Record summary: This 74-nucleotide RNA sequence belongs to the Rfam family "DUF3800-IX RNA". Actinobacteria, Firmicutes (1 example), Nitrospirae, Proteobacteria, Verrucomicrobia (1 example).
[Rfam]
RNA sequence: ACCCCUGGCGAAGAGUCGCCGACUGUGGCGGCCUGCUGCCGGUCGCUGAGCCGGAGCUAGCCAGGGGGGUUUUU
Numbered sequence: 001a002c003c004c005c006u007g008g009c010g011a012a013g014a015g016u017c018g019c020c021g022a023c024u025g026u027g028g029c030g031g032c033c034u035g036c037u038g039c040c041g042g043u044c045g046c047u048g049a050g051c052c053g054g055a056g057c058u059a060g061c062c063a064g065g066g067g068g069g070u071u072u073u074u
Stems, first nucleotide, its partner, number of pairs: 002067003006063004015032006035057003039054005